Rfam assigns this 137-nucleotide RNA sequence from Liparis tanakae to the family "Small nucleolar RNA SNORA57". A reference for the family is Vitali et al. (2003), "Identification of 13 novel human modification guide RNAs", Nucleic Acids Res.
RNA sequence: CCUCCAAUUCUUGACACACACGUGGUUGUCCAGUACUCGUGUGUGAUACGCACGGAGGGAAAAAAAUGCAGCGCUAUGUCUUCGGUGCCGGUGUGUGUUAUCGUCUGCCGGUUCUAUCCUCAAUCGCUGUAACAGUC
Numbered sequence: 001c002c003u004c005c006a007a008u009u010c011u012u013g014a015c016a017c018a019c020a021c022g023u024g025g026u027u028g029u030c031c032a033g034u035a036c037u038c039g040u041g042u043g044u045g046a047u048a049c050g051c052a053c054g055g056a057g058g059g060a061a062a063a064a065a066a067u068g069c070a071g072c073g074c075u076a077u078g079u080c081u082u083c084g085g086u087g088c089c090g091g092u093g094u095g096u097g098u099u100a101u102c103g104u105c106u107g108c109c110g111g112u113u114c115u116a117u118c119c120u121c122a123a124u125c126g127c128u129g130u131a132a133c134a135g136u137c
Stems, first nucleotide, its partner, number of pairs: 001058005015045006022038001024037003069129005088111006
U99 belongs to the H/ACA class of snoRNAs which are thought to guide the sites of modification of uridines to pseudouridines, the target for this family is unknown.
The organism belongs to Liparis, within Eukaryota.
The family's consensus secondary structure was predicted with PFOLD.